[Rfam]
Shown here is a 155-nucleotide RNA from Chenopodium quinoa, a member of the family "Small nucleolar RNA snoR2/U65". Gene Ontology terms of the family: nucleolus and RNA processing. The match comes from Rfam's covariance-model search (119 bits). The family's consensus secondary structure was predicted with WAR. Taxonomically the source falls in Chenopodium (Eukaryota, Embryophyta, Euphyllophyta, Gunneridae). Clan: SNORA65 clan.
RNA sequence: GGUCCGAUGCCACGUCGUUAAUAGCAUAUAAUGCGAUGAUUAUCGAUGCUAUGAUUAGACCAAGAUUAAGCUUUAAUUAGUGAUUCGCAUUUUGAUAGGAAUCCGUUGGUUUUUAUUUCCAUGAUUAAACGGAGCCGUUUUGUGCGAUUACAUUU
Numbered sequence: 001g002g003u004c005c006g007a008u009g010c011c012a013c014g015u016c017g018u019u020a021a022u023a024g025c026a027u028a029u030a031a032u033g034c035g036a037u038g039a040u041u042a043u044c045g046a047u048g049c050u051a052u053g054a055u056u057a058g059a060c061c062a063a064g065a066u067u068a069a070g071c072u073u074u075a076a077u078u079a080g081u082g083a084u085u086c087g088c089a090u091u092u093u094g095a096u097a098g099g100a101a102u103c104c105g106u107u108g109g110u111u112u113u114u115a116u117u118u119c120c121a122u123g124a125u126u127a128a129a130c131g132g133a134g135c136c137g138u139u140u141u142g143u144g145c146g147a148u149u150a151c152a153u154u155u
Base pairs, nucleotide, nucleotide: 002060003059004058006056007055008054009052013048014047015046016045017044020041021040022039024034025033026032085147086146087145088144089143098136099135103132104131105130107127108126109125110124111123